[Rfam]
RNA sequence: CUACAAUGAUGACAAUAUUUUCCAUCAACAGAAAUUAACCUAGUGAGUUUCGAUAUUUAGGGUAUGAGUGA
Numbered sequence: 001c002u003a004c005a006a007u008g009a010u011g012a013c014a015a016u017a018u019u020u021u022c023c024a025u026c027a028a029c030a031g032a033a034a035u036u037a038a039c040c041u042a043g044u045g046a047g048u049u050u051c052g053a054u055a056u057u058u059a060g061g062g063u064a065u066g067a068g069u070g071a
Stems, first nucleotide, its partner, number of pairs: 002070003008026004